[Rfam]
RNA sequence: UUGAAGUUCCAUCUAUAAAUGGAUAAAAUAUCUUUUCUUUUUUAGUUUAGUAUAUACGAGUUUUUUUUUUUUUAGUAAAGGAGCAAUACUAGUUUCUUGAUAGAACAAGAAACUUUUAAAUGCUCCUUU
Numbered sequence: 001u002u003g004a005a006g007u008u009c010c011a012u013c014u015a016u017a018a019a020u021g022g023a024u025a026a027a028a029u030a031u032c033u034u035u036u037c038u039u040u041u042u043u044a045g046u047u048u049a050g051u052a053u054a055u056a057c058g059a060g061u062u063u064u065u066u067u068u069u070u071u072u073u074a075g076u077a078a079a080g081g082a083g084c085a086a087u088a089c090u091a092g093u094u095u096c097u098u099g100a101u102a103g104a105a106c107a108a109g110a111a112a113c114u115u116u117u118a119a120a121u122g123c124u125c126c127u128u129u
Stems, first nucleotide, its partner, number of pairs: 008023005077129009087119001091115001092113001094111005
Annotation:
Rfam assigns this 129-nucleotide RNA from Pseudostellaria heterophylla to the family "Plastid-psbA-1 3UTR RNA". Rfam's curators write: Plastid psbA-1 is a non-coding RNA (ncRNA) present in plastids. It was identified in inverted repeat sequences in the 3 prime untranslate region (3UTR) of photosystem II quinone-binding protein (psbA). The family is grouped with related families in Rfam's "Plastid-psbA 3UTR RNA clan". On this family, see Richter et al., Plant Commun 2023: "Retrograde signaling in plants: A critical review focusing on the GUN pathway and beyond". The family's consensus secondary structure was predicted with LocARNA. The family's RNA type in Rfam is cis-regulatory element.